[Rfam]
RNA sequence: CCUGCCACGAUGCCGGUCCAUCACUGUGGCCGAGUAUAUUCCAGUGGAGGCUAAGAGCAACCCGGCUUUAGGAAACAGGGCUGUCCAAACCAUUGGACCGCCCUGUGCCGAAAAGUCCGGAACACUG
Numbered sequence: 001c002c003u004g005c006c007a008c009g010a011u012g013c014c015g016g017u018c019c020a021u022c023a024c025u026g027u028g029g030c031c032g033a034g035u036a037u038a039u040u041c042c043a044g045u046g047g048a049g050g051c052u053a054a055g056a057g058c059a060a061c062c063c064g065g066c067u068u069u070a071g072g073a074a075a076c077a078g079g080g081c082u083g084u085c086c087a088a089a090c091c092a093u094u095g096g097a098c099c100g101c102c103c104u105g106u107g108c109c110g111a112a113a114a115g116u117c118c119g120g121a122a123c124a125c126u127g
Stems, first nucleotide, its partner, number of pairs: 005047004018034001019032001021029002062120004066115004071109002076105006084097003

The family of this 127-nucleotide RNA sequence from Cyprinodon variegatus is "Small nucleolar RNA SNORA65". U65 belongs to the H/ACA class of snoRNAs which are thought to guide the sites of modification of uridines to pseudouridines. For this family Rfam cites "RNomics: an experimental approach that identifies 201 candidates for novel, small, non-messenger RNAs in mouse" (Huttenhofer et al., EMBO J, 2001). Rfam classes the family as an H/ACA-box small nucleolar RNA. The family's consensus secondary structure was predicted with RNAalifold.